[Rfam]
RNA sequence: CCUCUUGCAGAAAAUACCUUUCUUACCUAUCUAUAGAAGUGCUUGGAGUUCGCUCUAGCUAUGGCGAUAAACGGUAAGUGAAAUAAGUGUUGUGGACCCGGGGGCAGUGCCCGGCGUCUCCACCAGAAAAACCUUUCAAGGUCUUAUGGGGACGAAACAGGCUCGACACGCAUGGUAAAGACUUAUCUUUUGCCCGGCAUUGUACCACCGUCAUCGGGCUAAACUUACAAGUGCCAACGAUAACUCUGAGGUGCUCGCUGUUGCUGCAUAAGCGAUAAGCGCGGUUCGGGAGGGCACCGGGCAACAGAAGCCCUCCCA
Numbered sequence: 001c002c003u004c005u006u007g008c009a010g011a012a013a014a015u016a017c018c019u020u021u022c023u024u025a026c027c028u029a030u031c032u033a034u035a036g037a038a039g040u041g042c043u044u045g046g047a048g049u050u051c052g053c054u055c056u057a058g059c060u061a062u063g064g065c066g067a068u069a070a071a072c073g074g075u076a077a078g079u080g081a082a083a084u085a086a087g088u089g090u091u092g093u094g095g096a097c098c099c100g101g102g103g104g105c106a107g108u109g110c111c112c113g114g115c116g117u118c119u120c121c122a123c124c125a126g127a128a129a130a131a132c133c134u135u136u137c138a139a140g141g142u143c144u145u146a147u148g149g150g151g152a153c154g155a156a157a158c159a160g161g162c163u164c165g166a167c168a169c170g171c172a173u174g175g176u177a178a179a180g181a182c183u184u185a186u187c188u189u190u191u192g193c194c195c196g197g198c199a200u201u202g203u204a205c206c207a208c209c210g211u212c213a214u215c216g217g218g219c220u221a222a223a224c225u226u227a228c229a230a231g232u233g234c235c236a237a238c239g240a241u242a243a244c245u246c247u248g249a250g251g252u253g254c255u256c257g258c259u260g261u262u263g264c265u266g267c268a269u270a271a272g273c274g275a276u277a278a279g280c281g282c283g284g285u286u287c288g289g290g291a292g293g294g295c296a297c298c299g300g301g302c303a304a305c306a307g308a309a310g311c312c313c314u315c316c317c318a
Stems, first nucleotide, its partner, number of pairs: 041059003045055001063194005073187007088172003092169003098114005115154007195210003200221001202219001205217002282299004289315002292312002